Shown here is a 133-nucleotide RNA from Marmota marmota, a member of the family "Small nucleolar RNA SNORA61". The base pairs follow the family's consensus structure, which was predicted with PFOLD. It scores 136 bits against the family's covariance model. From the family's description: ACA61 is a member of the H/ACA class of snoRNA that guide the sites of modification of uridines to pseudouridines. Rfam links the family to the GO terms nucleolus and RNA processing. Rfam classes the family as an H/ACA-box small nucleolar RNA.
RNA sequence: ACCCUCUGGUUCCCUUUCCCAUCGGAUCUGAAUACUGGUCUUGGUGGUCGUAAAAGGAGGAAAAGUAAUACUGAAGCUGGCCUUAACGGUGUUCUAGUCUGUUUUCUAACACAUGGGCUAAUUUCAAACAGGA
Numbered sequence: 001a002c003c004c005u006c007u008g009g010u011u012c013c014c015u016u017u018c019c020c021a022u023c024g025g026a027u028c029u030g031a032a033u034a035c036u037g038g039u040c041u042u043g044g045u046g047g048u049c050g051u052a053a054a055a056g057g058a059g060g061a062a063a064a065g066u067a068a069u070a071c072u073g074a075a076g077c078u079g080g081c082c083u084u085a086a087c088g089g090u091g092u093u094c095u096a097g098u099c100u101g102u103u104u105u106c107u108a109a110c111a112c113a114u115g116g117g118c119u120a121a122u123u124u125c126a127a128a129c130a131g132g133a
Stems, first nucleotide, its partner, number of pairs: 003060005019047005025040004078120006093111001095109001